[Rfam]
RNA: Small nucleolar RNA SNORD30
RNA sequence: CCAUAUGAUGACUGACUGGAAUCUCGUUCGGCUGAUGAAUUGCUGUUGAGACUCAGGAAAUCUGAUUGUC
Numbered sequence: 001c002c003a004u005a006u007g008a009u010g011a012c013u014g015a016c017u018g019g020a021a022u023c024u025c026g027u028u029c030g031g032c033u034g035a036u037g038a039a040u041u042g043c044u045g046u047u048g049a050g051a052c053u054c055a056g057g058a059a060a061u062c063u064g065a066u067u068g069u070c
Stems, first nucleotide, its partner, number of pairs: 022051005029045004